[Rfam]
U2 spliceosomal RNA: a 193-nucleotide sequence. Rfam classes the family as a spliceosomal small nuclear RNA. Rfam's curators put it in the seed alignment. U2 is a small nuclear RNA (snRNA) component of the spliceosome (involved in pre-mRNA splicing). Complementary binding between U2 snRNA (in an area lying towards the 5' end but 3' to hairpin I) and the branchpoint sequence (BPS) of the intron results the bulging out of an unpaired adenosine, on the BPS, which initiates a nucleophilic attack at the intronic 5' splice site, thus starting the first of two transesterification reactions that mediate splicing. Pairs were carried over by alignment from the consensus structure, which is taken from published work.
RNA sequence: AUCGCUUCUCGGCCUUUUGGCUAAGAUCAAAGUGUAGUAUCUGUUCUUAUCAGCUUAAUAUCUGAUACGUUCCCUACAUGGGAACUACGAUAUUAAACUGAUUUUUGGUCAGAGGUGAGAUGUCAGGGGCUUGCUCCGCUCUCGCCACGGGUUGGCCUGGUAUUGCAGUACCUCCAGGAACGGCCCACCUUAU
Numbered sequence: 001a002u003c004g005c006u007u008c009u010c011g012g013c014c015u016u017u018u019g020g021c022u023a024a025g026a027u028c029a030a031a032g033u034g035u036a037g038u039a040u041c042u043g044u045u046c047u048u049a050u051c052a053g054c055u056u057a058a059u060a061u062c063u064g065a066u067a068c069g070u071u072c073c074c075u076a077c078a079u080g081g082g083a084a085c086u087a088c089g090a091u092a093u094u095a096a097a098c099u100g101a102u103u104u105u106u107g108g109u110c111a112g113a114g115g116u117g118a119g120a121u122g123u124c125a126g127g128g129g130c131u132u133g134c135u136c137c138g139c140u141c142u143c144g145c146c147a148c149g150g151g152u153u154g155g156c157c158u159g160g161u162a163u164u165g166c167a168g169u170a171c172c173u174c175c176a177g178g179a180a181c182g183g184c185c186c187a188c189c190u191u192a193u
Base pairs, nucleotide, nucleotide: 007026008025009024011022012021013020014019048067049066050065051064052063053062069085070084071083072082073081074080114146115145116144117143118142119141120140126137127136128135129134149186150185151184152183153182154181156178157177158176159175160174
Dot-bracket structure: ......(((.((((....)))).))).....................((((((........)))))).((((((.....))))))............................(((((((.....((((....))))..)))))))..((((((.(((((.............)))))..)))))).......